[Rfam]
RNA sequence: ACGCGUAAAGAUAAAAACACAGUCCCGGCCGGUAGUCCGGGCACAGCCAUGCUGUCAGUAACCCGCCUUCCUCGGCUGUCCCUUCUUUGCCGUUUUUUG
Numbered sequence: 001a002c003g004c005g006u007a008a009a010g011a012u013a014a015a016a017a018c019a020c021a022g023u024c025c026c027g028g029c030c031g032g033u034a035g036u037c038c039g040g041g042c043a044c045a046g047c048c049a050u051g052c053u054g055u056c057a058g059u060a061a062c063c064c065g066c067c068u069u070c071c072u073c074g075g076c077u078g079u080c081c082c083u084u085c086u087u088u089g090c091c092g093u094u095u096u097u098u099g
Stems, first nucleotide, its partner, number of pairs: 005090007022042002025040004043055005065076003
Rfam assigns this 99-nucleotide RNA sequence from Firmicutes bacterium CAG:94 to the family "azaaromatic riboswitch aptamer (yjdF RNA)". The family's consensus secondary structure is taken from published work.